[Rfam]
RNA sequence: CAUAGGGGAAGGAAGGCUAAAACCGCGACGUCAAUCGCCACUUCUUCAUGGCCCACAUCCUGUGGG
Numbered sequence: 001c002a003u004a005g006g007g008g009a010a011g012g013a014a015g016g017c018u019a020a021a022a023c024c025g026c027g028a029c030g031u032c033a034a035u036c037g038c039c040a041c042u043u044c045u046u047c048a049u050g051g052c053c054c055a056c057a058u059c060c061u062g063u064g065g066g
Stems, first nucleotide, its partner, number of pairs: 012047005025038004052066005